[Rfam]
This 87-nucleotide RNA sequence belongs to the Rfam family "DUF3800-VII RNA". It is one of the family's seed sequences. The family's RNA type in Rfam is small RNA.
RNA sequence: UGCAGACAAGCGCAGGGUUUGUAGAGGUCACCGGCAACGGUGGCAGCCCGAAUGGGUGGGAUCCUCGAACCUGGGGUCUGCAUGAGU
Numbered sequence: 001u002g003c004a005g006a007c008a009a010g011c012g013c014a015g016g017g018u019u020u021g022u023a024g025a026g027g028u029c030a031c032c033g034g035c036a037a038c039g040g041u042g043g044c045a046g047c048c049c050g051a052a053u054g055g056g057u058g059g060g061a062u063c064c065u066c067g068a069a070c071c072u073g074g075g076g077u078c079u080g081c082a083u084g085a086g087u
Base pairs, nucleotide, nucleotide: 001082002081003080004079005078006077007076011074013073014072015071016070022068024066025065026064027044028043029042030041031040032039033038047056048055049054